[Rfam]
RNA: Actinobacteria sRNA Ms_IGR-5
Organism: Frankia nepalensis
RNA sequence: ACACGAGAAGGGAGGUGGUCCAAAGUUGUGUAGUGAUUGGACUCGUGAGGUGACUGUCAGCUAGAGCCGGUCUCCGUGGUACCACCUCCGGGUGUCCCCUGCGGGGCACUGGCCGGCGAGUACCAGGCAGUCACCGGUCCCCCGGGCGCCGUCGUAAGUCCCGACGGCCCACGUCUCACGGAGGCGUGGAAGUGCCCGGGGGUUUCUAGUU
Dot-bracket structure: .............((((((.................................)))))).(((.(..((((.((((((((...................))))))))..))))).)))..................((.((((((((((.(................).........................)))))))))).))......
Numbered sequence: 001a002c003a004c005g006a007g008a009a010g011g012g013a014g015g016u017g018g019u020c021c022a023a024a025g026u027u028g029u030g031u032a033g034u035g036a037u038u039g040g041a042c043u044c045g046u047g048a049g050g051u052g053a054c055u056g057u058c059a060g061c062u063a064g065a066g067c068c069g070g071u072c073u074c075c076g077u078g079g080u081a082c083c084a085c086c087u088c089c090g091g092g093u094g095u096c097c098c099c100u101g102c103g104g105g106g107c108a109c110u111g112g113c114c115g116g117c118g119a120g121u122a123c124c125a126g127g128c129a130g131u132c133a134c135c136g137g138u139c140c141c142c143c144g145g146g147c148g149c150c151g152u153c154g155u156a157a158g159u160c161c162c163g164a165c166g167g168c169c170c171a172c173g174u175c176u177c178a179c180g181g182a183g184g185c186g187u188g189g190a191a192g193u194g195c196c197c198g199g200g201g202g203u204u205u206c207u208a209g210u211u
Stems, first nucleotide, its partner, number of pairs: 014058006060117003064113001067112004072106008136205002139202010150167001